[Rfam]
RNA sequence: CUGAGCUGGUGGCGCACUUGGGCAAGUUCUUGGUGGGCUCACGUGUACUCUUAAGAAAGGAUACGCCUGAAAAAGCCCGCUCACCAGCGGGCUUUUUUUC
Numbered sequence: 001c002u003g004a005g006c007u008g009g010u011g012g013c014g015c016a017c018u019u020g021g022g023c024a025a026g027u028u029c030u031u032g033g034u035g036g037g038c039u040c041a042c043g044u045g046u047a048c049u050c051u052u053a054a055g056a057a058a059g060g061a062u063a064c065g066c067c068u069g070a071a072a073a074a075g076c077c078c079g080c081u082c083a084c085c086a087g088c089g090g091g092c093u094u095u096u097u098u099u100c
Base pairs, nucleotide, nucleotide: 009042010041011040012039015035016034017033018032020030021029022028074093075092076091077090078089079088080087081086